FMN riboswitch aptamer (RFN element): a 146-nucleotide RNA from Paenibacillus sp. TCA20. Lineage of the source: Bacteria > Bacillati > Bacillota > Caryophanales > Paenibacillus.

[Rfam]
RNA sequence: GUAAUCCUUCGGGGCAGGGUGAAAUUCCCUACCGGCGGUGAUGACUUGUCUUCAAGUCUUAGUCCGUGACCCGUGAGCUGGAAGCUAGCGGUGGAUCUGGUGCAACUCCAGAACCGACAGUAUAGUCUGGAUGAGAGAAGGAGAAU
Numbered sequence: 001g002u003a004a005u006c007c008u009u010c011g012g013g014g015c016a017g018g019g020u021g022a023a024a025u026u027c028c029c030u031a032c033c034g035g036c037g038g039u040g041a042u043g044a045c046u047u048g049u050c051u052u053c054a055a056g057u058c059u060u061a062g063u064c065c066g067u068g069a070c071c072c073g074u075g076a077g078c079u080g081g082a083a084g085c086u087a088g089c090g091g092u093g094g095a096u097c098u099g100g101u102g103c104a105a106c107u108c109c110a111g112a113a114c115c116g117a118c119a120g121u122a123u124a125g126u127c128u129g130g131a132u133g134a135g136a137g138a139a140g141g142a143g144a145a146u
Stems, first nucleotide, its partner, number of pairs: 005142006017029003031126002033116002035067004062114002071091002096112005118129003